[Rfam]
A member of the RNA family "Small Cajal body specific RNA 15" from Echinops telfairi, 127 nucleotides long.
The sequence is in the family's curated seed alignment.
The literature on the family includes a 2002 paper in EMBO J by Darzacq et al., "Cajal body-specific small nuclear RNAs: a novel class of 2'-O-methylation and pseudouridylation guide RNAs".
NCBI's taxonomy places the organism under Eukaryota, Eumetazoa, Afrotheria, Tenrecidae, Echinops.
By type it is a small Cajal body RNA.
Pairs were carried over by alignment from the consensus structure, which was predicted with RNAfold.

RNA sequence: CUGGAGACUAAGAAAAGAGAGUCCUUGAAGUCAAGCUGGCUCUGCUUCUAGUCUCCAAAAUGAAAAGGUAGAUAGAACAGGUCUUGUGAACGAAAUAUAUUCAAGACUUACAUAUCUACCAACAGCA
Numbered sequence: 001c002u003g004g005a006g007a008c009u010a011a012g013a014a015a016a017g018a019g020a021g022u023c024c025u026u027g028a029a030g031u032c033a034a035g036c037u038g039g040c041u042c043u044g045c046u047u048c049u050a051g052u053c054u055c056c057a058a059a060a061u062g063a064a065a066a067g068g069u070a071g072a073u074a075g076a077a078c079a080g081g082u083c084u085u086g087u088g089a090a091c092g093a094a095a096u097a098u099a100u101u102c103a104a105g106a107c108u109u110a111c112a113u114a115u116c117u118a119c120c121a122a123c124a125g126c127a
Stems, first nucleotide, its partner, number of pairs: 003056008018043006024035004067120008079109008